[Rfam]
RNA sequence: GGUCUUAAGGCGGUGCUCCCUUCAAACCAAUAAACGGUCGAUCUGAUGGGUGGUACAGCUGCUCGUUCAUGGUUCCCACUGUCCCAUCUCAUCAGAGAGAGAGAAGAUCGUGAGAGAGCGAGAGAUGCUUGAGAUGGGCUUGUGGUUUGCAUGACCGAGGAGCUGCCUCGUCCCCUUCGUUGACCGCUGUUUGGAUUGAAGGGAGCUCUGCAUCUUGCUCCC
Numbered sequence: 001g002g003u004c005u006u007a008a009g010g011c012g013g014u015g016c017u018c019c020c021u022u023c024a025a026a027c028c029a030a031u032a033a034a035c036g037g038u039c040g041a042u043c044u045g046a047u048g049g050g051u052g053g054u055a056c057a058g059c060u061g062c063u064c065g066u067u068c069a070u071g072g073u074u075c076c077c078a079c080u081g082u083c084c085c086a087u088c089u090c091a092u093c094a095g096a097g098a099g100a101g102a103g104a105a106g107a108u109c110g111u112g113a114g115a116g117a118g119c120g121a122g123a124g125a126u127g128c129u130u131g132a133g134a135u136g137g138g139c140u141u142g143u144g145g146u147u148u149g150c151a152u153g154a155c156c157g158a159g160g161a162g163c164u165g166c167c168u169c170g171u172c173c174c175c176u177u178c179g180u181u182g183a184c185c186g187c188u189g190u191u192u193g194g195a196u197u198g199a200a201g202g203g204a205g206c207u208c209u210g211c212a213u214c215u216u217g218c219u220c221c222c
Base pairs, nucleotide, nucleotide: 013208015206016205017204018203019202020201023198024197025196027194028193029192036185059162060161062159063158064157068153069152070151071150076145077144078143079142
The record is a 222-nucleotide sequence from Zea mays, which matches "MIR159 microRNA precursor family" in Rfam. Lineage of the source: Eukaryota > Viridiplantae > Spermatophyta > Petrosaviidae > Zea. On this family, see Rajagopalan et al., Genes Dev 2006: "A diverse and evolutionarily fluid set of microRNAs in Arabidopsis thaliana". Gene Ontology terms of the family: miRNA-mediated post-transcriptional gene silencing and RISC complex. Rfam 15.1 lists 3,649 matches to the family in 242 species.